7SK RNA: a 304-nucleotide sequence from Carlito syrichta. The family's RNA type in Rfam is non-coding RNA gene. It scores 267 bits against the family's covariance model. The family is grouped with related families in Rfam's "7SK clan".
[Rfam]
RNA sequence: AGAUGUGAGGGCGAUCUGGCUGCGACAUCUGUCACCCUAUUGAUCGCCAGGGUUGAUUCGGCUGAUCUGGCUGGCUAGGCGGGUGUCCCCUUCCUCCCUCACCGCUCCAUGUGCGUCCCUCCCGAAGCUGCGCGCUCGGUCGAAGAGGACGACCAUCCCCACUAGAGGAGGACCGUGCUUCGGUCAAGGGUAUACGAGUAGCUGCGCUCCCCUGCUAGAACCUCCAAACAAACUCUCAAGGCUUAGAGCUUUUAGAGACAAAGAUAUGUGAUUCCAGAUCUUUCUGAAUUUCAUGCCAUGCUUC
Numbered sequence: 001a002g003a004u005g006u007g008a009g010g011g012c013g014a015u016c017u018g019g020c021u022g023c024g025a026c027a028u029c030u031g032u033c034a035c036c037c038u039a040u041u042g043a044u045c046g047c048c049a050g051g052g053u054u055g056a057u058u059c060g061g062c063u064g065a066u067c068u069g070g071c072u073g074g075c076u077a078g079g080c081g082g083g084u085g086u087c088c089c090c091u092u093c094c095u096c097c098c099u100c101a102c103c104g105c106u107c108c109a110u111g112u113g114c115g116u117c118c119c120u121c122c123c124g125a126a127g128c129u130g131c132g133c134g135c136u137c138g139g140u141c142g143a144a145g146a147g148g149a150c151g152a153c154c155a156u157c158c159c160c161a162c163u164a165g166a167g168g169a170g171g172a173c174c175g176u177g178c179u180u181c182g183g184u185c186a187a188g189g190g191u192a193u194a195c196g197a198g199u200a201g202c203u204g205c206g207c208u209c210c211c212c213u214g215c216u217a218g219a220a221c222c223u224c225c226a227a228a229c230a231a232a233c234u235c236u237c238a239a240g241g242c243u244u245a246g247a248g249c250u251u252u253u254a255g256a257g258a259c260a261a262a263g264a265u266a267u268g269u270g271a272u273u274c275c276a277g278a279u280c281u282u283u284c285u286g287a288a289u290u291u292c293a294u295g296c297c298a299u300g301c302u303u304c
Stems, first nucleotide, its partner, number of pairs: 002107002005102007013093002018090002024087010035074002037070003042067004046062003116171002118168004122139004127135002142160001147158003203261001207257002212255003222248003231244002